[Rfam]
RNA sequence: UACCCCUUGGUAAAGAUGGUGCCGUUAGGGAUGGGGUUAGUACUCCCGAAAGGGCGAAGGAAAGCUCCAUAGGCAGCAAGGAG
Numbered sequence: 001u002a003c004c005c006c007u008u009g010g011u012a013a014a015g016a017u018g019g020u021g022c023c024g025u026u027a028g029g030g031a032u033g034g035g036g037u038u039a040g041u042a043c044u045c046c047c048g049a050a051a052g053g054g055c056g057a058a059g060g061a062a063a064g065c066u067c068c069a070u071a072g073g074c075a076g077c078a079a080g081g082a083g
Stems, first nucleotide, its partner, number of pairs: 001012004021074003031070007043059002045054003
This 83-nucleotide RNA belongs to the Rfam family "RT-18 RNA". The family's RNA type in Rfam is small RNA. It is one of the family's seed sequences.